[Rfam]
RNA sequence: GAGUCUAACGCGCGCGCGAGUCCAGGGGAGGCAGAGACCCCACGGCGCAAUGAAGGUGAAGGCCGGCGCGCGCCGGCCCAGGUGGGAUCCCCGCGCCACGGCGCGGGGCGAACCACCGGCCCGUCUCGCCCGCACCGCCGGGGAGGUGGAGCAAGAGCGCGUGCGAUAGGACCCGAAAGAUGGUGAACUAUGCCUGGGCAGGACGAAGCCAGAGGAAACUCUGGUGGAGGUCCGCAGCGGUCCUGACGUGCAAAUCGGUCGUCCGACCUGGGUAUAGGGGCGAAAGACUAAUCGAACCAUCUGGUAGCUGGUU
Numbered sequence: 001g002a003g004u005c006u007a008a009c010g011c012g013c014g015c016g017c018g019a020g021u022c023c024a025g026g027g028g029a030g031g032c033a034g035a036g037a038c039c040c041c042a043c044g045g046c047g048c049a050a051u052g053a054a055g056g057u058g059a060a061g062g063c064c065g066g067c068g069c070g071c072g073c074c075g076g077c078c079c080a081g082g083u084g085g086g087a088u089c090c091c092c093g094c095g096c097c098a099c100g101g102c103g104c105g106g107g108g109c110g111a112a113c114c115a116c117c118g119g120c121c122c123g124u125c126u127c128g129c130c131c132g133c134a135c136c137g138c139c140g141g142g143g144a145g146g147u148g149g150a151g152c153a154a155g156a157g158c159g160c161g162u163g164c165g166a167u168a169g170g171a172c173c174c175g176a177a178a179g180a181u182g183g184u185g186a187a188c189u190a191u192g193c194c195u196g197g198g199c200a201g202g203a204c205g206a207a208g209c210c211a212g213a214g215g216a217a218a219c220u221c222u223g224g225u226g227g228a229g230g231u232c233c234g235c236a237g238c239g240g241u242c243c244u245g246a247c248g249u250g251c252a253a254a255u256c257g258g259u260c261g262u263c264c265g266a267c268c269u270g271g272g273u274a275u276a277g278g279g280g281c282g283a284a285a286g287a288c289u290a291a292u293c294g295a296a297c298c299a300u301c302u303g304g305u306a307g308c309u310g311g312u313u
Stems, first nucleotide, its partner, number of pairs: 005169003009165009020046003025041004050057002081117005089108006119152002121149006130140001172311002175308001179301006188277011199265001201233004208225007237262004242258002245256002279289002
Rfam assigns this 313-nucleotide part of an RNA from Chanos chanos to the family "Eukaryotic large subunit ribosomal RNA". A search with the family's covariance model found it, with a score of 2818 bits. NCBI's taxonomy places the organism under Eukaryota, Bilateria, Deuterostomia, Craniata, Chanos.